[Rfam]
RNA: mir-135 microRNA precursor family
RNA sequence: UGCCCACUGCACUGUAUGGCUUUUUAUUCCUAUCUGACUGCGUUGAUGGUUCAUAUAGGGAUGGAAGCCAUGCAGUGCGCUGGGCU
Dot-bracket structure: .(((((.((((((((((((((((..((((((((.(((.............))).)))))))).)))))))))))))))).))))).